[Rfam]
Nucleotides: 137
Base pairs, nucleotide, nucleotide: 020042021041022040024039028035029034066091067090069087070086073078099126100125101124104122105121106120107119
Number, partner (000 for none) and nucleotide at each position: 001000u002000u003000a004000u005000c006000u007000g008000a009000g010000u011000u012000u013000a014000c015000c016000u017000u018000a019000c020042c021041u022040g023000u024039u025000c026000c027000g028035c029034c030000u031000u032000g033000g034029g035028g036000a037000a038000a039024a040022c041021a042020g043000a044000a045000c046000a047000u048000g049000a050000u051000g052000a053000a054000u055000g056000g057000a058000g059000g060000a061000g062000g063000c064000u065000u066091g067090a068000g069087u070086g071000a072000c073078u074000g075000a076000u077000u078073a079000c080000u081000c082000c083000a084000a085000g086070u087069a088000c089000u090067u091066c092000c093000c094000g095000u096000u097000u098000u099126u100125c101124u102000g103000u104122c105121u106120g107119g108000g109000a110000u111000g112000a113000c114000c115000a116000c117000a118000a119107c120106c121105a122104g123000u124101g125100g126099a127000g128000c129000c130000a131000u132000u133000c134000u135000g136000a137000u
Overview:
Shown here is a 137-nucleotide sequence from Hymenochirus boettgeri, a member of the family "U8 small nucleolar RNA". A reference for the family is Peculis et al. (2001), "The U8 snoRNA gene family: identification and characterization of distinct, functional U8 genes in Xenopus", Gene. The family's consensus secondary structure is taken from published work. By type it is a C/D-box small nucleolar RNA. The source organism's lineage runs through Eukaryota, Deuterostomia, Chordata, Craniata and Hymenochirus. Gene Ontology terms of the family: nucleolus and RNA processing.